[Rfam]
RNA: Small nucleolar RNA snoR97
RNA sequence: UCAUCUUCGUUGGUUCAGUGUUUGAAAAAUUCAAAUAUUGUUGUGUUGUCAUCAGCUUCAUAUCUUGUUGGAUCCACGAGUUGGGAGUUAAAUAACAGCACUAAAUUG
Numbered sequence: 001u002c003a004u005c006u007u008c009g010u011u012g013g014u015u016c017a018g019u020g021u022u023u024g025a026a027a028a029a030u031u032c033a034a035a036u037a038u039u040g041u042u043g044u045g046u047u048g049u050c051a052u053c054a055g056c057u058u059c060a061u062a063u064c065u066u067g068u069u070g071g072a073u074c075c076a077c078g079a080g081u082u083g084g085g086a087g088u089u090a091a092a093u094a095a096c097a098g099c100a101c102u103a104a105a106u107u108g
Stems, first nucleotide, its partner, number of pairs: 043101006054089006063079002